[Rfam]
RNA sequence: AGUUUGGACCAAUGAGGCAGUGCACUUGCUAGCUGGCUGUUGUGUUCUGGAAGCUUACAGCUGCUAGCUGCACUCCACAUUGUUUCAUUCU
Numbered sequence: 001a002g003u004u005u006g007g008a009c010c011a012a013u014g015a016g017g018c019a020g021u022g023c024a025c026u027u028g029c030u031a032g033c034u035g036g037c038u039g040u041u042g043u044g045u046u047c048u049g050g051a052a053g054c055u056u057a058c059a060g061c062u063g064c065u066a067g068c069u070g071c072a073c074u075c076c077a078c079a080u081u082g083u084u085u086c087a088u089u090c091u
Stems, first nucleotide, its partner, number of pairs: 001091002005087004010082004016076002019074006028068006035061001042056001044054003